[Rfam]
RNA sequence: AGUUGUUGUCAUGCCAUAUCUUACUGUGAUAACUCUGUAGGCAUUCGUUCGACAGAAGAUUAAUGAACAACCUAUUAUGAAAGCCCUAUCCCUAGUGAUUAGCCUAGUCGUGAUUAGCGUGGUGGUGAUUAUUAUCCCACCGUGCGGGGCUGCACUUGGACGAAGAAUGGCUUAGAAAUCAAGGCCUAAUUCAAGAAAACCCCCGCACCGAAAGGUCGGGGGUUUUUUGUUGGGCGUAAUCUAUAACGGAAAGGAACAGAAAAUGAACAUCAGCAUAAAAUUCUGUUAUUCCCAUAAGAU
Numbered sequence: 001a002g003u004u005g006u007u008g009u010c011a012u013g014c015c016a017u018a019u020c021u022u023a024c025u026g027u028g029a030u031a032a033c034u035c036u037g038u039a040g041g042c043a044u045u046c047g048u049u050c051g052a053c054a055g056a057a058g059a060u061u062a063a064u065g066a067a068c069a070a071c072c073u074a075u076u077a078u079g080a081a082a083g084c085c086c087u088a089u090c091c092c093u094a095g096u097g098a099u100u101a102g103c104c105u106a107g108u109c110g111u112g113a114u115u116a117g118c119g120u121g122g123u124g125g126u127g128a129u130u131a132u133u134a135u136c137c138c139a140c141c142g143u144g145c146g147g148g149g150c151u152g153c154a155c156u157u158g159g160a161c162g163a164a165g166a167a168u169g170g171c172u173u174a175g176a177a178a179u180c181a182a183g184g185c186c187u188a189a190u191u192c193a194a195g196a197a198a199a200c201c202c203c204c205g206c207a208c209c210g211a212a213a214g215g216u217c218g219g220g221g222g223u224u225u226u227u228u229g230u231u232g233g234g235c236g237u238a239a240u241c242u243a244u245a246a247c248g249g250a251a252a253g254g255a256a257c258a259g260a261a262a263a264u265g266a267a268c269a270u271c272a273g274c275a276u277a278a279a280a281u282u283c284u285g286u287u288a289u290u291c292c293c294a295u296a297a298g299a300u
Stems, first nucleotide, its partner, number of pairs: 005033008013024001016021001037075005044067005049059002085254003089250003093245002097241005102235006109119003121141005127136003142161002145158004162192003169186005194228012207216003255287007263276003

The record is a 300-nucleotide RNA sequence from Pectobacterium carotovorum, which matches "Soft rot Enterobacteriaceae Rev 39 5'UTR" in Rfam. From the family's description: From bacteria cultured under starvation conditions. The source organism's lineage runs through Bacteria, Pseudomonadati, Enterobacterales, Pectobacteriaceae and Pectobacterium carotovorum subsp. carotovorum. By type it is a cis-regulatory element.